The family of this 89-nucleotide RNA from Anas platyrhynchos is "mir-1426 microRNA precursor family".

RNA sequence: UGGGGUUGGUACUCUUUCCUUAACUCAUGCCGCUGUGCCUUUUAAUUUUAUUUCACAAUUGUGUGAGUUGAGUACAGAGUGUCAGCCUA
Numbered sequence: 001u002g003g004g005g006u007u008g009g010u011a012c013u014c015u016u017u018c019c020u021u022a023a024c025u026c027a028u029g030c031c032g033c034u035g036u037g038c039c040u041u042u043u044a045a046u047u048u049u050a051u052u053u054c055a056c057a058a059u060u061g062u063g064u065g066a067g068u069u070g071a072g073u074a075c076a077g078a079g080u081g082u083c084a085g086c087c088u089a
Stems, first nucleotide, its partner, number of pairs: 004087010019072010034057004
The base pairs follow the family's consensus structure, which was predicted with RNAalifold. It scores 98 bits against the family's covariance model. Gene Ontology terms of the family: RISC complex and miRNA-mediated post-transcriptional gene silencing.